[Rfam]
RNA sequence: UGCCAUAGUGAGGGGAUUUAUUUAGGUGUUGGUUAUUUGUCACCUUUUUUAUUGUUGCGCGUUCGUAACCAAUGUGCAAAAAACGCAACAAGACAGC
Dot-bracket structure: .......((..................(.((((.....)))))..........((((((....((.........)).......))))))...))...
RNA: Fst antitoxin sRNA
Organism: Staphylococcus aureus